The record is a 114-nucleotide RNA sequence from Pseudomonas fluorescens, which matches "Pseudomon-groES RNA" in Rfam. Pairs were carried over by alignment from the consensus structure, which is taken from published work. NCBI's taxonomy places the organism under Bacteria, Pseudomonadota, Gammaproteobacteria, Pseudomonadaceae, Pseudomonas fluorescens.
[Rfam]
RNA sequence: GUAUCGGUCACCGAAAGGUUUCCGGUAUUUGAACCGGACAGACUUCCGCGGUUCGCUCGACGAGCCGCAACCGGCGCAGGCCGGAUUCGUUAAACCCGCCGGGACUACACCGGC
Number, nucleotide and partner (000 for none) at each position: 001g000002u000003a000004u000005c000006g000007g000008u000009c000010a019011c018012c017013g000014a000015a000016a000017g012018g011019u010020u000021u038022c037023c036024g035025g034026u033027a000028u000029u000030u000031g000032a000033a026034c025035c024036g023037g022038a021039c000040a000041g000042a000043c000044u000045u000046c000047c000048g068049c067050g066051g065052u064053u063054c062055g061056c000057u000058c000059g000060a000061c055062g054063a053064g052065c051066c050067g049068c048069a000070a000071c084072c083073g082074g081075c000076g000077c000078a000079g000080g000081c074082c073083g072084g071085a000086u000087u000088c000089g000090u000091u000092a000093a000094a000095c000096c000097c000098g114099c113100c112101g111102g110103g000104a000105c000106u000107a000108c000109a000110c102111c101112g100113g099114c098